[Rfam]
The family of this 61-nucleotide RNA from Ziziphus jujuba is "Plastid-psbN 5UTR RNA". The family has 63 seed sequences and 2,345 matches in Rfam 15.1. The base pairs follow the family's consensus structure, which was predicted with LocARNA. The literature on the family includes a 2023 paper in Plant Commun by Richter et al., "Retrograde signaling in plants: A critical review focusing on the GUN pathway and beyond". About the family: Plastid psbN is a non-coding RNA (ncRNA) recognised in plastids.
RNA sequence: UGCGAUACCCAUCAAAAGAGUAGUUCCCCCCACAGGAGCUACUUUACUGUAUUCUGAAUUC
Numbered sequence: 001u002g003c004g005a006u007a008c009c010c011a012u013c014a015a016a017a018g019a020g021u022a023g024u025u026c027c028c029c030c031c032a033c034a035g036g037a038g039c040u041a042c043u044u045u046a047c048u049g050u051a052u053u054c055u056g057a058a059u060u061c
Stems, first nucleotide, its partner, number of pairs: 017045011